The record is a 62-nucleotide RNA from Alicyclobacillus tolerans, which matches "Fluoride riboswitch aptamer (crcB RNA motif)" in Rfam. Its family is annotated with positive regulation of gene expression and response to fluoride in the Gene Ontology. Rfam 15.1 lists 2,293 matches to the family in 1,982 species. A search with the family's covariance model found it, with a score of 52 bits.
Nucleotides: 062
Stems, first nucleotide, its partner, number of pairs: 010025004016053005033042003
Number, partner (000 for none) and nucleotide at each position: 001000a002000a003000c004000u005000g006000a007000a008000c009000a010025g011024g012023u013022g014000a015000u016053g017052g018051a019050g020049c021000c022013c023012a024011c025010c026000u027000u028000a029000a030000c031000c032000g033042c034041c035040u036000c037000u038000a039000u040035a041034g042033g043000a044000u045000a046000a047000u048000a049020g050019c051018u052017c053016c054000u055000a056000c057000a058000a059000a060000u061000u062000u